[Rfam]
RNA: FMN riboswitch aptamer (RFN element)
Organism: Sarcina ventriculi
RNA sequence: UAGAAUCUUCGGGGCGAGGCGUAAAUCCUCACCGGCGGUUAUAGCCCGCAAGCUUUUGGUAGCAGAUUUGGUGAAAUUCCAAAGCCGACAGUUAAAGUCUGGAUGAGAGAAGAUGUGU
Numbered sequence: 001u002a003g004a005a006u007c008u009u010c011g012g013g014g015c016g017a018g019g020c021g022u023a024a025a026u027c028c029u030c031a032c033c034g035g036c037g038g039u040u041a042u043a044g045c046c047c048g049c050a051a052g053c054u055u056u057u058g059g060u061a062g063c064a065g066a067u068u069u070g071g072u073g074a075a076a077u078u079c080c081a082a083a084g085c086c087g088a089c090a091g092u093u094a095a096a097g098u099c100u101g102g103a104u105g106a107g108a109g110a111a112g113a114u115g116u117g118u
Stems, first nucleotide, its partner, number of pairs: 003116001005114006017029003031098002033087002035049004044085002052063003067083005089101003